[Rfam]
RNA: Small Cajal body-specific RNA 7
Organism: Podarcis muralis
RNA sequence: UGGAAAUGAUGAAAUGGAGGUAAUAGGGAAUAGUAAGGGGUGUGUACAUUAGGGAAGGGGGGCAAAUUUUAGUCUGAGGUAAAAGUGGGGUUGGUUGUGUAAAAGUUAUAUAGUGAUGUAAACUGUGGGCACUGAUAAAGAAGCUGUUGAUUUCGCAGUGCAUCUGAGGCCUUGUUGCUAAAUCAUCUGGGUUUACUGCAACAUUGCCAGUGAUUAGAGCCCAAAAUAAGCUCGCAGUUUGCAUCUAGACAUUUUAAACCUCUAACAGGUUCCUUUUGUUAGGCAAAAGGAAUGUGAUCUGAUCCAA
Numbered sequence: 001u002g003g004a005a006a007u008g009a010u011g012a013a014a015u016g017g018a019g020g021u022a023a024u025a026g027g028g029a030a031u032a033g034u035a036a037g038g039g040g041u042g043u044g045u046a047c048a049u050u051a052g053g054g055a056a057g058g059g060g061g062g063c064a065a066a067u068u069u070u071a072g073u074c075u076g077a078g079g080u081a082a083a084a085g086u087g088g089g090g091u092u093g094g095u096u097g098u099g100u101a102a103a104a105g106u107u108a109u110a111u112a113g114u115g116a117u118g119u120a121a122a123c124u125g126u127g128g129g130c131a132c133u134g135a136u137a138a139a140g141a142a143g144c145u146g147u148u149g150a151u152u153u154c155g156c157a158g159u160g161c162a163u164c165u166g167a168g169g170c171c172u173u174g175u176u177g178c179u180a181a182a183u184c185a186u187c188u189g190g191g192u193u194u195a196c197u198g199c200a201a202c203a204u205u206g207c208c209a210g211u212g213a214u215u216a217g218a219g220c221c222c223a224a225a226a227u228a229a230g231c232u233c234g235c236a237g238u239u240u241g242c243a244u245c246u247a248g249a250c251a252u253u254u255u256a257a258a259c260c261u262c263u264a265a266c267a268g269g270u271u272c273c274u275u276u277u278g279u280u281a282g283g284c285a286a287a288a289g290g291a292a293u294g295u296g297a298u299c300u301g302a303u304c305c306a307a
Stems, first nucleotide, its partner, number of pairs: 001306004173203006179195006